[Rfam]
The family of this 141-nucleotide RNA sequence from Callorhinchus milii is "Small nucleolar RNA SNORA14". It scores 56 bits against the family's covariance model. Rfam links the family to the GO terms RNA processing and nucleolus. Rfam classes the family as an H/ACA-box small nucleolar RNA. ACA14 is a member of the H/ACA class of snoRNA that guide the sites of modification of uridines to pseudouridines.
RNA sequence: CUGCAUUCUUUUAAACCCCCUGGUAGUUUUUGUACUGACAUCCAGGACUAGAAGGGAUGCAAAAUUAAAUGUUCCAGAGAUUUUUCCAAAGUGAGGAGCAGCCUUCGCUUUGCUUCUCACUAUUUCACGUCUCUGACAUCU
Numbered sequence: 001c002u003g004c005a006u007u008c009u010u011u012u013a014a015a016c017c018c019c020c021u022g023g024u025a026g027u028u029u030u031u032g033u034a035c036u037g038a039c040a041u042c043c044a045g046g047a048c049u050a051g052a053a054g055g056g057a058u059g060c061a062a063a064a065u066u067a068a069a070u071g072u073u074c075c076a077g078a079g080a081u082u083u084u085u086c087c088a089a090a091g092u093g094a095g096g097a098g099c100a101g102c103c104u105u106c107g108c109u110u111u112g113c114u115u116c117u118c119a120c121u122a123u124u125u126c127a128c129g130u131c132u133c134u135g136a137c138a139u140c141u
Base pairs, nucleotide, nucleotide: 003060004059005058006057010052011051012050019046020045021044022043023042026039027038064141075135076134077133078132079131080130090121091120092119093118094117095116096115098113099112